[Rfam]
RNA: skipping-rope RNA
RNA sequence: AAAUUAUGAGGUAGAGAAUGUGCUUCCGCGCACCCGUGUGGUCAAGAGAAAUGUGGGACACGGCACACCCACCAUAAUUU
Numbered sequence: 001a002a003a004u005u006a007u008g009a010g011g012u013a014g015a016g017a018a019u020g021u022g023c024u025u026c027c028g029c030g031c032a033c034c035c036g037u038g039u040g041g042u043c044a045a046g047a048g049a050a051a052u053g054u055g056g057g058a059c060a061c062g063g064c065a066c067a068c069c070c071a072c073c074a075u076a077a078u079u080u
Base pairs, nucleotide, nucleotide: 001080002079003078004077005076006075007074008073011029012028014026015025020066021065022064023063024062031048032042033041034040053072054071055070056069057068